RNA sequence: UCGGCAGCCUUAGUAGGGGCCGAUAGGCCGGAGACGCAGGUUUUCGGUGGCGUCUCCAAUCCAUGUUGCUUUACGGAGGAUAUGGUAAUGAGAA
Numbered sequence: 001u002c003g004g005c006a007g008c009c010u011u012a013g014u015a016g017g018g019g020c021c022g023a024u025a026g027g028c029c030g031g032a033g034a035c036g037c038a039g040g041u042u043u044u045c046g047g048u049g050g051c052g053u054c055u056c057c058a059a060u061c062c063a064u065g066u067u068g069c070u071u072u073a074c075g076g077a078g079g080a081u082a083u084g085g086u087a088a089u090g091a092g093a094a
Stems, first nucleotide, its partner, number of pairs: 001023005008017002031053001033051001035049003039045002054092003061085007069078003
RNA: Repression of heat shock gene expression (ROSE) element
Organism: Pseudorhizobium banfieldiae